[Rfam]
RNA sequence: UAUGAAAAAGGUAAACCCUACGAAAGUCGGGGGCACAAAGCCACGGGCCUAAUGUUUUAUUCCAUAUAAAACGAUGGCAGCCGGGCCGCCGGGG
Number, nucleotide and partner (000 for none) at each position: 001u094002a000003u091004g090005a000006a000007a000008a000009a000010g000011g036012u035013a000014a000015a000016c031017c030018c029019u000020a027021c026022g000023a000024a000025a000026g021027u020028c000029g018030g017031g016032g000033g000034c080035a012036c011037a000038a000039a000040g086041c085042c084043a000044c083045g082046g081047g078048c077049c076050u000051a000052a000053u000054g000055u000056u000057u000058u000059a000060u000061u000062c000063c000064a000065u000066a000067u000068a000069a000070a000071a000072c000073g000074a000075u000076g049077g048078c047079a000080g034081c046082c045083g044084g042085g041086c040087c000088g000089c000090c004091g003092g000093g000094g001
A member of the RNA family "c-di-GMP-I-GGC riboswitch aptamer" from Paenibacillus nanensis, 94 nucleotides long.
The organism belongs to Paenibacillus, within Bacteria.